[Rfam]
Record summary
Shown here is a 121-nucleotide RNA from Caenorhabditis auriculariae, a member of the family "U5 spliceosomal RNA". By type it is a spliceosomal small nuclear RNA. The base pairs follow the family's consensus structure, which is taken from published work. U5 RNA is a component of both types of known spliceosome. The precise function of this molecule is unknown, though it is known that the 5' loop is required for splice site selection and p220 binding, and that both the 3' stem-loop and the Sm site are important for Sm protein binding and cap methylation. It scores 89 bits against the family's covariance model. The source organism's lineage runs through Eukaryota, Eumetazoa, Rhabditina, Peloderinae and Caenorhabditis.

RNA sequence: UAACUCUGGUUCCUUUGCAUUUGACCGAGAAAAUCUUUCGCCUUUUACUAAAGAUUUCCGUGCAAAGGGGCAACUUUAUGAGUAUUGCCCAAUUUUUGGAAACCCCUCGAAAGAGCGGGUU
Numbered sequence: 001u002a003a004c005u006c007u008g009g010u011u012c013c014u015u016u017g018c019a020u021u022u023g024a025c026c027g028a029g030a031a032a033a034u035c036u037u038u039c040g041c042c043u044u045u046u047a048c049u050a051a052a053g054a055u056u057u058c059c060g061u062g063c064a065a066a067g068g069g070g071c072a073a074c075u076u077u078a079u080g081a082g083u084a085u086u087g088c089c090c091a092a093u094u095u096u097u098g099g100a101a102a103c104c105c106c107u108c109g110a111a112a113g114a115g116c117g118g119g120u121u
Stems, first nucleotide, its partner, number of pairs: 003083004009071011031057008100121001102120004107115001